[Rfam]
RNA: Small nucleolar RNA snoR26
Organism: Cocos nucifera
RNA sequence: UCAGCAUGAGUGAUGUUUAACCUCUUGUAGUUAUCCUUGCACUUUGAUCUCUGGUGAAGAAAUUUUGGGGGAAAUCAUUGAUUGAGAUGCUU
Numbered sequence: 001u002c003a004g005c006a007u008g009a010g011u012g013a014u015g016u017u018u019a020a021c022c023u024c025u026u027g028u029a030g031u032u033a034u035c036c037u038u039g040c041a042c043u044u045u046g047a048u049c050u051c052u053g054g055u056g057a058a059g060a061a062a063u064u065u066u067g068g069g070g071g072a073a074a075u076c077a078u079u080g081a082u083u084g085a086g087a088u089g090c091u092u
Base pairs, nucleotide, nucleotide: 003091004090005089006088007087
Dot-bracket structure: ..(((((...............................................................................))))).